Small nucleolar RNA R11/Z151: an 86-nucleotide RNA from Punica granatum. The literature on the family includes a 2001 paper in J Mol Biol by Barneche et al., "Identification of 66 box C/D snoRNAs in Arabidopsis thaliana: extensive gene duplications generated multiple isoforms predicting new ribosomal RNA 2'-O-methylation sites". By type it is a C/D-box small nucleolar RNA. The base pairs follow the family's consensus structure, which was predicted with PFOLD. Rfam links the family to the GO terms RNA processing and nucleolus. It scores 79 bits against the family's covariance model.

[Rfam]
RNA sequence: GGGCUUGUGAUGAGAAUUCAAAUUAUCUUAGCGGAUUUCAGUGAGAUUUCAUGUCUAUGAUCUGAUUGUUACACACACUGAAGCCU
Dot-bracket structure: (((((............................................................................)))))